Overview:
The record is a 91-nucleotide sequence from Sorghum bicolor, which matches "MIR5387 microRNA precursor family" in Rfam. NCBI's taxonomy places the organism under Eukaryota, Viridiplantae, Embryophyta, Liliopsida, Sorghum.
[Rfam]
RNA sequence: UGGUAACACGAACCGGUGCUAAAGGGUCUCUGCCCCGACAGCACCUAGUAGCCGUUGGACAGGACCCUUUAGCACCGGUUCGUGGUACGAA
Dot-bracket structure: ..(((.(((((((((((((((((((((.((...((..((..............)).))...))))))))))))))))))))))).)))...
The match comes from Rfam's covariance-model search (81 bits).
Rfam 15.1 lists 1,029 matches to the family in 9 species.